[Rfam]
RNA sequence: AGAGGAAGGAUCCAAAGGGAUCGCAUUGAUCCUAAUUAAGGUGAAUUCUCCCCAUAUUUUCUUUAUAAUUGGCAAAUAAAUCACAAAAAUUUGCUUGGUUUUGGAUCAUGCUAUCUCUUUGGAUUCAUCCUU
Numbered sequence: 001a002g003a004g005g006a007a008g009g010a011u012c013c014a015a016a017g018g019g020a021u022c023g024c025a026u027u028g029a030u031c032c033u034a035a036u037u038a039a040g041g042u043g044a045a046u047u048c049u050c051c052c053c054a055u056a057u058u059u060u061c062u063u064u065a066u067a068a069u070u071g072g073c074a075a076a077u078a079a080a081u082c083a084c085a086a087a088a089a090u091u092u093g094c095u096u097g098g099u100u101u102u103g104g105a106u107c108a109u110g111c112u113a114u115c116u117c118u119u120u121g122g123a124u125u126c127a128u129c130c131u132u
Stems, first nucleotide, its partner, number of pairs: 002132005008126014023111004028107005